[Rfam]
RNA sequence: GGGGAGUAGCCUCAAUGCGCCAACGCAUUGGCGCGUGUCAACAUACUUGGUUUUAACACCAUGGCACGCGCGGCCGUAAAGGUUUGGCAAGACUCAUGACAGGUUUGCACUUUCAGCAGGGGCUGCAGUGCAGAUCGGUCAUGGCGUUCUUCGCAGCCCCUU
Numbered sequence: 001g002g003g004g005a006g007u008a009g010c011c012u013c014a015a016u017g018c019g020c021c022a023a024c025g026c027a028u029u030g031g032c033g034c035g036u037g038u039c040a041a042c043a044u045a046c047u048u049g050g051u052u053u054u055a056a057c058a059c060c061a062u063g064g065c066a067c068g069c070g071c072g073g074c075c076g077u078a079a080a081g082g083u084u085u086g087g088c089a090a091g092a093c094u095c096a097u098g099a100c101a102g103g104u105u106u107g108c109a110c111u112u113u114c115a116g117c118a119g120g121g122g123c124u125g126c127a128g129u130g131c132a133g134a135u136c137g138g139u140c141a142u143g144g145c146g147u148u149c150u151u152c153g154c155a156g157c158c159c160c161u162u
Stems, first nucleotide, its partner, number of pairs: 014029003031071010048061004078162001
A member of the RNA family "Manganese Mn2+ riboswitch aptamer (yybP-ykoY)" from Pseudogulbenkiania sp. NH8B, 162 nucleotides long. About the family: This RNA was originally discovered in E. coli during a large scale screen and was named SraF. The family was later found to exist upstream of related families of protein genes in many bacteria, including the the yybP and ykoK genes in B. subtilis. The specific functions of these proteins are unknown, but this structured RNA element may be involved in their genetic regulation as a riboswitch. A search with the family's covariance model found it, with a score of 59 bits. Lineage of the source: Bacteria > Pseudomonadota > Neisseriales > Chromobacteriaceae > Pseudogulbenkiania.